[Rfam]
RNA sequence: GGAUGUGAGGGUGAUCUGGCUGUGGCACCUGUCACCCCAUUGAUUGCCAGGGUUGAUUUGGCUGAUCUGGCUGACUAGGCACGUGUCCCCUUCCUCCCUCGCCACUCCACGUGCGUCCCUCCUGAAGCUGUGUGCUUGGUUUAAGAGGACAACCAUCCCAGAUACAGGAGGACUGGUCUCUGGUCAAGGGUAUAUGAGGAGCUGCACUCCCCUGCUAGAACCUUCAAACAAGCUCUCAAGGUCCAUUUGUAGGAGAAUGUAGGGUAGUCAAGCUUCCAAGACUCCAGACACAUCCAAAUGAGGUGCUGCCUUUCUUA
Numbered sequence: 001g002g003a004u005g006u007g008a009g010g011g012u013g014a015u016c017u018g019g020c021u022g023u024g025g026c027a028c029c030u031g032u033c034a035c036c037c038c039a040u041u042g043a044u045u046g047c048c049a050g051g052g053u054u055g056a057u058u059u060g061g062c063u064g065a066u067c068u069g070g071c072u073g074a075c076u077a078g079g080c081a082c083g084u085g086u087c088c089c090c091u092u093c094c095u096c097c098c099u100c101g102c103c104a105c106u107c108c109a110c111g112u113g114c115g116u117c118c119c120u121c122c123u124g125a126a127g128c129u130g131u132g133u134g135c136u137u138g139g140u141u142u143a144a145g146a147g148g149a150c151a152a153c154c155a156u157c158c159c160a161g162a163u164a165c166a167g168g169a170g171g172a173c174u175g176g177u178c179u180c181u182g183g184u185c186a187a188g189g190g191u192a193u194a195u196g197a198g199g200a201g202c203u204g205c206a207c208u209c210c211c212c213u214g215c216u217a218g219a220a221c222c223u224u225c226a227a228a229c230a231a232g233c234u235c236u237c238a239a240g241g242u243c244c245a246u247u248u249g250u251a252g253g254a255g256a257a258u259g260u261a262g263g264g265u266a267g268u269c270a271a272g273c274u275u276c277c278a279a280g281a282c283u284c285c286a287g288a289c290a291c292a293u294c295c296a297a298a299u300g301a302g303g304u305g306c307u308g309c310c311u312u313u314c315u316u317a
Base pairs, nucleotide, nucleotide: 001108002107003106005102006101007100008099009098010097011096013093014092018090019089024087025086026085027084028083030081031080032079033078036073037070038069039068042067043066044065045064046062047061048060116171117170118168119167120166122139123138124137125136127135128134140162141161142160147158148157149156201273202272203271207267208266210264211263212262213261214260215259222255223254224253225252228250229249230248231247232246307317308316